[Rfam]
RNA sequence: GUAAAUGCACAGAUAAGGACAACAAUGAUUAGUGCGACUUUCAGAGAGGAAUACAGUGGUGCGAGUAUUCUAGUGACGGCUAAUGAUUUACCACCUUGGAGCAGCGACAGUGAACGAAUAGUAAUUGUCGACGGUAGCGGCCCGUUAGCCGAUCGAGAGCUUCGUCUUUGCAGGUUUUUUUCUGCAUGGAAGGAAGAAGGGUGGAACCACGAGCGCAAGCAUCGUCCCUUUA
Numbered sequence: 001g002u003a004a005a006u007g008c009a010c011a012g013a014u015a016a017g018g019a020c021a022a023c024a025a026u027g028a029u030u031a032g033u034g035c036g037a038c039u040u041u042c043a044g045a046g047a048g049g050a051a052u053a054c055a056g057u058g059g060u061g062c063g064a065g066u067a068u069u070c071u072a073g074u075g076a077c078g079g080c081u082a083a084u085g086a087u088u089u090a091c092c093a094c095c096u097u098g099g100a101g102c103a104g105c106g107a108c109a110g111u112g113a114a115c116g117a118a119u120a121g122u123a124a125u126u127g128u129c130g131a132c133g134g135u136a137g138c139g140g141c142c143c144g145u146u147a148g149c150c151g152a153u154c155g156a157g158a159g160c161u162u163c164g165u166c167u168u169u170g171c172a173g174g175u176u177u178u179u180u181u182c183u184g185c186a187u188g189g190a191a192g193g194a195a196g197a198a199g200g201g202u203g204g205a206a207c208c209a210c211g212a213g214c215g216c217a218a219g220c221a222u223c224g225u226c227c228c229u230u231u232a
Stems, first nucleotide, its partner, number of pairs: 007102002015097004028084006037074003048071006105130007132144003160192004165188001198229004209225004
The record is a 232-nucleotide sequence from Kurthia sp. 11kri321, which matches "T-box leader" in Rfam. The organism belongs to Kurthia, within Bacteria. It is annotated as a cis-regulatory leader. From the family's description: Uncharged tRNA acts as the effector for transcription antitermination of genes in the T-box leader family. T-boxes are found upstream of many aminoacyl-tRNA synthetase genes and some amino acid biosynthetic genes usually in Gram-positive bacteria. The anticodon of a specific tRNA base pairs to a specifier sequence within the T-box motif, and the NCCA acceptor tail of the tRNA base pairs to a conserved bulge in the T-box antiterminator hairpin. The base pairs follow the family's consensus structure, which is taken from published work. The match comes from Rfam's covariance-model search (94 bits). The literature on the family includes a 2003 paper in J Mol Biol by Gerdeman et al., "Solution structure of the Bacillus subtilis T-box antiterminator RNA: seven nucleotide bulge characterized by stacking and flexibility".